A member of the RNA family "Lysine riboswitch aptamer" from Thermoanaerobacterium thermosaccharolyticum, 192 nucleotides long. On this family, see Mandal et al., Cell 2003: "Riboswitches Control Fundamental Biochemical Pathways in Bacillus subtilis and Other Bacteria". Rfam describes the family as follows. Riboswitches are metabolite binding domains within certain messenger RNAs that serve as precision sensors for their corresponding targets.

RNA sequence: AGGUGAGGUAGAGGAGCGGAGAAUCAAGAGUAGCAUACAUUAGGUUUUAAGGAACCGAUGAUUGUAUGCGAAAGGGAUAAAUCCGCCGAAGCGUGUAGAUACCUUAAUAUCUGCACAGCUGGGCCUAUGCAUAAUAUGUAUAGGACUGUCACAAGUAGUUACCCGGACUAUUUGUGAUGAGCUAUCUCGCUU
Numbered sequence: 001a002g003g004u005g006a007g008g009u010a011g012a013g014g015a016g017c018g019g020a021g022a023a024u025c026a027a028g029a030g031u032a033g034c035a036u037a038c039a040u041u042a043g044g045u046u047u048u049a050a051g052g053a054a055c056c057g058a059u060g061a062u063u064g065u066a067u068g069c070g071a072a073a074g075g076g077a078u079a080a081a082u083c084c085g086c087c088g089a090a091g092c093g094u095g096u097a098g099a100u101a102c103c104u105u106a107a108u109a110u111c112u113g114c115a116c117a118g119c120u121g122g123g124c125c126u127a128u129g130c131a132u133a134a135u136a137u138g139u140a141u142a143g144g145a146c147u148g149u150c151a152c153a154a155g156u157a158g159u160u161a162c163c164c165g166g167a168c169u170a171u172u173u174g175u176g177a178u179g180a181g182c183u184a185u186c187u188c189g190c191u192u
Stems, first nucleotide, its partner, number of pairs: 006187006016086005023078003033069007090120003093116008121147002124144008149177010